[Rfam]
RNA sequence: GAUUAUAGUACGCUUAGUUUUCGACCUAUAGGUCGAAAAGCGGGGGAACCAGUUAUUAGGGGCGAAUCAUUCUUCGGAAUGAAGGGUACCAUCUUACCCGAGUCCGUCAGCUAACCUCGUCAGCAGGAGAUGGGUCUG
Numbered sequence: 001g002a003u004u005a006u007a008g009u010a011c012g013c014u015u016a017g018u019u020u021u022c023g024a025c026c027u028a029u030a031g032g033u034c035g036a037a038a039a040g041c042g043g044g045g046g047a048a049c050c051a052g053u054u055a056u057u058a059g060g061g062g063c064g065a066a067u068c069a070u071u072c073u074u075c076g077g078a079a080u081g082a083a084g085g086g087u088a089c090c091a092u093c094u095u096a097c098c099c100g101a102g103u104c105c106g107u108c109a110g111c112u113a114a115c116c117u118c119g120u121c122a123g124c125a126g127g128a129g130a131u132g133g134g135u136c137u138g
Stems, first nucleotide, its partner, number of pairs: 012124003018039009040120006050059001060105003068081004084099004
Dot-bracket structure: ...........(((...(((((((((....)))))))))((((((....(........)(((.....((((......))))..((((........))))...))).........)))))).)))..............
RNA: c-di-AMP riboswitch aptamer (ydaO/yuaA leader)